[Rfam]
RNA sequence: GCACUGGGAAGGAUGUUAUACCGCUGUGAUCCCUUGCUGUGUCUCGAAGGAGAGCGAUGUCAGAGACGCAGACAGUGC
Numbered sequence: 001g002c003a004c005u006g007g008g009a010a011g012g013a014u015g016u017u018a019u020a021c022c023g024c025u026g027u028g029a030u031c032c033c034u035u036g037c038u039g040u041g042u043c044u045c046g047a048a049g050g051a052g053a054g055c056g057a058u059g060u061c062a063g064a065g066a067c068g069c070a071g072a073c074a075g076u077g078c
Stems, first nucleotide, its partner, number of pairs: 001078006011032003038070008